[Rfam]
RNA sequence: GUCUUGCUCCGAAUGGCACUUGAAGAAUUCACGGGUAUUUUGUGUAACCCCGUGGUUCUCAUGUGCCGUGCGGUGCGGAUG
Number, nucleotide and partner (000 for none) at each position: 001g000002u000003c000004u078005u077006g076007c075008u000009c073010c072011g000012a000013a069014u068015g067016g066017c065018a064019c000020u000021u061022g060023a000024a000025g057026a056027a000028u000029u055030c054031a053032c052033g051034g050035g000036u000037a000038u000039u000040u000041u000042g000043u000044g000045u000046a000047a000048c000049c000050c034051c033052g032053u031054g030055g029056u026057u025058c000059u000060c022061a021062u000063g000064u018065g017066c016067c015068g014069u013070g000071c000072g010073g009074u000075g007076c006077g005078g004079a000080u000081g000